The family of this 149-nucleotide RNA from Rhizobium sp. Root149 is "FMN riboswitch aptamer (RFN element)". It scores 120 bits against the family's covariance model. Its family is annotated with FMN binding in the Gene Ontology. Pairs were carried over by alignment from the consensus structure, which is taken from published work. The family has 146 seed sequences and 6,230 matches in Rfam 15.1.
RNA sequence: AGAUGUUCUCAGGGCGGGGCGAAAUUCCCCACCGGCGGUAAAAGGUGCAAACCCCAAGCCCGCGAGCGCCUUCGCUGAUGAGGUGAAGGGUCAGCAGAUCCGGUGCAACUCCGGAGCCGACGGUAUAGUCCGGAUGGAAGAGAGCAAGC
Numbered sequence: 001a002g003a004u005g006u007u008c009u010c011a012g013g014g015c016g017g018g019g020c021g022a023a024a025u026u027c028c029c030c031a032c033c034g035g036c037g038g039u040a041a042a043a044g045g046u047g048c049a050a051a052c053c054c055c056a057a058g059c060c061c062g063c064g065a066g067c068g069c070c071u072u073c074g075c076u077g078a079u080g081a082g083g084u085g086a087a088g089g090g091u092c093a094g095c096a097g098a099u100c101c102g103g104u105g106c107a108a109c110u111c112c113g114g115a116g117c118c119g120a121c122g123g124u125a126u127a128g129u130c131c132g133g134a135u136g137g138a139a140g141a142g143a144g145c146a147a148g149c
Stems, first nucleotide, its partner, number of pairs: 004146007017029003031129002033119002035063004058117002066095002099115005121132003